[Rfam]
RNA sequence: CGCCCGCCGGGGUUCCUGGCGAUGCGAUUUUUGUACUCGGCUGCCCAAAAUCACAUUGCCAGGGACUUCCAACGGGCG
Numbered sequence: 001c002g003c004c005c006g007c008c009g010g011g012g013u014u015c016c017u018g019g020c021g022a023u024g025c026g027a028u029u030u031u032u033g034u035a036c037u038c039g040g041c042u043g044c045c046c047a048a049a050a051u052c053a054c055a056u057u058g059c060c061a062g063g064g065a066c067u068u069c070c071a072a073c074g075g076g077c078g
Stems, first nucleotide, its partner, number of pairs: 001078002004075003010070002012066013026052005
Dot-bracket structure: ((.(((...(((((((((((((((.(((((.................))))).)))))))))))))..))..))).))

A member of the RNA family "mir-23 microRNA precursor family" from Nothocercus julius, 78 nucleotides long. Rfam links the family to the GO terms gene silencing by miRNA and RISC complex. It scores 67 bits against the family's covariance model. The organism belongs to Nothocercus, within Eukaryota. A reference for the family is Lagos-Quintana et al. (2002), "Identification of tissue-specific microRNAs from mouse", Curr Biol.